[Rfam]
RNA: Bacterial large subunit ribosomal RNA, nucleotides 2106 to 2692
RNA sequence: CCCGCGGCUAGACGGAAAGACCCCAUGAACCUUUACUAUAGCUUCACAUUGGAUUGUUAACCGGCCUGUGUAGGAUAGGUGGGAGGCGCUGAAGGCGGGACGCUAGUUUCGCUGGAGCCGUCCUUGAAAUACCACCCUGGUUUGUUGAUGGUUCUAACCUUGGCCCGUGAUCCGGGUUGGGGACAGUGUGUGGUGGGUAGUUUGACUGGGGCGGUCUCCUCCUAAACGGUAACGGAGGAGUUCGAAGGUACGCUAGGUACGGUCGGAAAUCGUGCUGAUAGUGCAUUGGCAAAAGCGUGCUUGACUGUGAGACUGACACGUCGAACAGGUGCGAAAGCAGGACAAAGUGAUCCGGUGGUUCUGAAUGGAAGGGCCAUCGCUCAACGGAUAAAAGGUACUCUGGGGAUAACAGGCUGAUACCGCCCAAGAGUUCAUAUCGACGGCGGUGUUUGGCACCUCGAUGUCGACUCAUCUCAUCCUGGGGCUGUAGCCGGUCCCAAGGGUAUGGCUGUUCGCCAUUUAAAGAGGUACGUGAGUUGGGUUUAAAACGUCGUGAGACAGUUUGGUCCCUAUCUGCCGUGGGCGUU
Numbered sequence: 001c002c003c004g005c006g007g008c009u010a011g012a013c014g015g016a017a018a019g020a021c022c023c024c025a026u027g028a029a030c031c032u033u034u035a036c037u038a039u040a041g042c043u044u045c046a047c048a049u050u051g052g053a054u055u056g057u058u059a060a061c062c063g064g065c066c067u068g069u070g071u072a073g074g075a076u077a078g079g080u081g082g083g084a085g086g087c088g089c090u091g092a093a094g095g096c097g098g099g100a101c102g103c104u105a106g107u108u109u110c111g112c113u114g115g116a117g118c119c120g121u122c123c124u125u126g127a128a129a130u131a132c133c134a135c136c137c138u139g140g141u142u143u144g145u146u147g148a149u150g151g152u153u154c155u156a157a158c159c160u161u162g163g164c165c166c167g168u169g170a171u172c173c174g175g176g177u178u179g180g181g182g183a184c185a186g187u188g189u190g191u192g193g194u195g196g197g198u199a200g201u202u203u204g205a206c207u208g209g210g211g212c213g214g215u216c217u218c219c220u221c222c223u224a225a226a227c228g229g230u231a232a233c234g235g236a237g238g239a240g241u242u243c244g245a246a247g248g249u250a251c252g253c254u255a256g257g258u259a260c261g262g263u264c265g266g267a268a269a270u271c272g273u274g275c276u277g278a279u280a281g282u283g284c285a286u287u288g289g290c291a292a293a294a295g296c297g298u299g300c301u302u303g304a305c306u307g308u309g310a311g312a313c314u315g316a317c318a319c320g321u322c323g324a325a326c327a328g329g330u331g332c333g334a335a336a337g338c339a340g341g342a343c344a345a346a347g348u349g350a351u352c353c354g355g356u357g358g359u360u361c362u363g364a365a366u367g368g369a370a371g372g373g374c375c376a377u378c379g380c381u382c383a384a385c386g387g388a389u390a391a392a393a394g395g396u397a398c399u400c401u402g403g404g405g406a407u408a409a410c411a412g413g414c415u416g417a418u419a420c421c422g423c424c425c426a427a428g429a430g431u432u433c434a435u436a437u438c439g440a441c442g443g444c445g446g447u448g449u450u451u452g453g454c455a456c457c458u459c460g461a462u463g464u465c466g467a468c469u470c471a472u473c474u475c476a477u478c479c480u481g482g483g484g485c486u487g488u489a490g491c492c493g494g495u496c497c498c499a500a501g502g503g504u505a506u507g508g509c510u511g512u513u514c515g516c517c518a519u520u521u522a523a524a525g526a527g528g529u530a531c532g533u534g535a536g537u538u539g540g541g542u543u544u545a546a547a548a549c550g551u552c553g554u555g556a557g558a559c560a561g562u563u564u565g566g567u568c569c570c571u572a573u574c575u576g577c578c579g580u581g582g583g584c585g586u587u
Stems, first nucleotide, its partner, number of pairs: 001583008010575003014570002022404004027400002029396005035201004042193002045190004051154011063142004068137001078136005085119003094113008158181003162178006204216004217239006240385001242342002248300006254280002257275006281290002305328004311322003330339003353379007361372002413454003417451001418448007428438002465540001466538004470532001471529005478503002481498006505519005546564004550559003